[Rfam]
RNA sequence: GAUAUGGAGGAGGGAGAUUCCAGGCCUUUCCUAAGACCUCGAGUACAAUUUUUGGAAACCCUGUCUAUUUUAAGGCAGGGUG
Number, nucleotide and partner (000 for none) at each position: 001g000002a000003u000004a000005u000006g000007g000008a000009g000010g000011a000012g000013g000014g000015a000016g000017a000018u000019u000020c000021c000022a039023g038024g037025c000026c035027u034028u033029u000030c000031c000032u000033a028034a027035g026036a000037c024038c023039u022040c000041g000042a000043g000044u000045a000046c000047a000048a000049u000050u000051u000052u000053u000054g000055g000056a000057a000058a081059c080060c079061c078062u077063g076064u075065c074066u073067a000068u000069u000070u000071u000072a000073a066074g065075g064076c063077a062078g061079g060080g059081u058082g000
The family of this 82-nucleotide sequence from Caenorhabditis remanei is "SmY spliceosomal RNA". The organism belongs to Caenorhabditis, within Eukaryota.